[Rfam]
The family of this 138-nucleotide RNA from Rhizobiales bacterium GAS113 is "Group II catalytic intron D1-D4-4". On this family, see Bonen and Vogel, Trends Genet 2001: "The ins and outs of group II introns". From the family's description: Group II introns are found in rRNA, tRNA and mRNA of organelles in fungi, plants and protists, and also in mRNA in bacteria. Pairs were carried over by alignment from the consensus structure. The match comes from Rfam's covariance-model search (74 bits).
RNA sequence: CAGUGGGUGCAAGACCCACCCGGCAACCGCUCCAGCCGGAAGCAACCGGAGCAGGCAUGGAGGUGACGAAAAACUCUGGAGCCCCCGGAUAGCGGUCACGAAUUUGGUAACCGCGCGAGCGUGCAGGCCGCAACGCCU
Numbered sequence: 001c002a003g004u005g006g007g008u009g010c011a012a013g014a015c016c017c018a019c020c021c022g023g024c025a026a027c028c029g030c031u032c033c034a035g036c037c038g039g040a041a042g043c044a045a046c047c048g049g050a051g052c053a054g055g056c057a058u059g060g061a062g063g064u065g066a067c068g069a070a071a072a073a074c075u076c077u078g079g080a081g082c083c084c085c086c087g088g089a090u091a092g093c094g095g096u097c098a099c100g101a102a103u104u105u106g107g108u109a110a111c112c113g114c115g116c117g118a119g120c121g122u123g124c125a126g127g128c129c130g131c132a133a134c135g136c137c138u
Stems, first nucleotide, its partner, number of pairs: 020039005047087003051083001052078004062067001094112003098108002115131003